[Rfam]
RNA sequence: AUGUUUUACAAAGCGCCAGGACUAUUCUUUCCGAGCGAUGGAAGAUAGUUGACGAGGUUGGAGGUUAUCGAAUUGUUCGGCGGGUGCCUCCCGAUUGCUCACCUCCAUUGUAACGCUUUUUCUCAAAACAACAAGGUAACUUGUUGGCCAAAGGAAAAAAGCAAGGUGACAU
Numbered sequence: 001a002u003g004u005u006u007u008a009c010a011a012a013g014c015g016c017c018a019g020g021a022c023u024a025u026u027c028u029u030u031c032c033g034a035g036c037g038a039u040g041g042a043a044g045a046u047a048g049u050u051g052a053c054g055a056g057g058u059u060g061g062a063g064g065u066u067a068u069c070g071a072a073u074u075g076u077u078c079g080g081c082g083g084g085u086g087c088c089u090c091c092c093g094a095u096u097g098c099u100c101a102c103c104u105c106c107a108u109u110g111u112a113a114c115g116c117u118u119u120u121u122c123u124c125a126a127a128a129c130a131a132c133a134a135g136g137u138a139a140c141u142u143g144u145u146g147g148c149c150a151a152a153g154g155a156a157a158a159a160a161g162c163a164a165g166g167u168g169a170c171a172u
Base pairs, nucleotide, nucleotide: 020050021049022048023047024046025045026044029041060091061090062089063088064087068080069079070078071077092110093109094108095107097105115162116161117160118159119158120157121156129146130145131144132143133142134141135140
Shown here is a 172-nucleotide RNA from Virgibacillus salarius, a member of the family "glmS glucosamine-6-phosphate activated ribozyme aptamer".
A reference for the family is Winkler et al. (2004), "Control of gene expression by a natural metabolite-responsive ribozyme", Nature.
By type it is a riboswitch.
The organism belongs to Virgibacillus, within Bacteria.